Small nucleolar RNA Z279/snoR105/snoR108: a 102-nucleotide sequence from Phaseolus vulgaris. A search with the family's covariance model found it, with a score of 73 bits. The family is grouped with related families in Rfam's "snoU13 clan". It is annotated as a C/D-box small nucleolar RNA. The literature on the family includes a 2002 paper in Curr Biol by Marker et al., "Experimental RNomics: identification of 140 candidates for small non-messenger RNAs in the plant Arabidopsis thaliana". Its family is annotated with nucleolus and RNA processing in the Gene Ontology. This family includes the plant snoRNAs known as Z279, snoR105 and snoR108. Lineage of the source: Eukaryota > Streptophyta > Pentapetalae > Phaseoleae > Phaseolus. The base pairs follow the family's consensus structure, which was predicted with PFOLD.
RNA sequence: GGGAUAUGAGGAGUGAAUUGGGCUCGCUAUGAUGUGAGUUGGGUGCUCUUUCCAAAGCCUGGUUACGACAAUGGAGCAUUCUCCUAUUUCUUAUCUGAUCCC
Numbered sequence: 001g002g003g004a005u006a007u008g009a010g011g012a013g014u015g016a017a018u019u020g021g022g023c024u025c026g027c028u029a030u031g032a033u034g035u036g037a038g039u040u041g042g043g044u045g046c047u048c049u050u051u052c053c054a055a056a057g058c059c060u061g062g063u064u065a066c067g068a069c070a071a072u073g074g075a076g077c078a079u080u081c082u083c084c085u086a087u088u089u090c091u092u093a094u095c096u097g098a099u100c101c102c
Stems, first nucleotide, its partner, number of pairs: 001102004014093003023038005041081007059074002062072002